[Rfam]
RNA: abiF RNA
RNA sequence: CCAGUCAAGCCUCUCAAAGAUGCUCAAAUGGCUGGC
Numbered sequence: 001c002c003a004g005u006c007a008a009g010c011c012u013c014u015c016a017a018a019g020a021u022g023c024u025c026a027a028a029u030g031g032c033u034g035g036c
Base pairs, nucleotide, nucleotide: 001035002034003033004032005031006030008024009023010022